[Rfam]
RNA sequence: CUCAAUUGUGUUAUUACACACACGUAUCGGCACAUGCGCCGGGGUGCUCUGAAUCACAAGGUCGGGGUCGGCCGUAUGGGAUACGUGGAGGCAUAAC
Numbered sequence: 001c002u003c004a005a006u007u008g009u010g011u012u013a014u015u016a017c018a019c020a021c022a023c024g025u026a027u028c029g030g031c032a033c034a035u036g037c038g039c040c041g042g043g044g045u046g047c048u049c050u051g052a053a054u055c056a057c058a059a060g061g062u063c064g065g066g067g068u069c070g071g072c073c074g075u076a077u078g079g080g081a082u083a084c085g086u087g088g089a090g091g092c093a094u095a096a097c
Stems, first nucleotide, its partner, number of pairs: 021087008033078005038072004046068005
Shown here is a 97-nucleotide sequence from Sodalis glossinidius, a member of the family "t44 RNA". It is one of the family's seed sequences. Rfam's curators write: This family consists of a number of bacterial RNA genes of between 135 and 170 bases in length. The t44 gene has been identified in several species of enteric bacteria but homologs have also been identified in Pseudomonas and Coxiella species. The t44 gene is found between the map and rpsB genes in all species in the full alignment apart from Shigella flexneri.